[Rfam]
Nucleotides: 055
Base pairs, nucleotide, nucleotide: 001023002022003021005019006018007017009016025055026054027053029052030051031050032049033048034047035046
Number, partner (000 for none) and nucleotide at each position: 001023c002022c003021g004000c005019g006018c007017c008000u009016g010000c011000g012000a013000c014000c015000g016009c017007g018006g019005u020000c021003c022002g023001g024000c025055c026054c027053g028000a029052c030051u031050c032049c033048g034047g035046u036000a037000c038000c039000u040000g041000g042000u043000a044000c045000g046035g047034c048033c049032g050031g051030g052029g053027c054026g055025g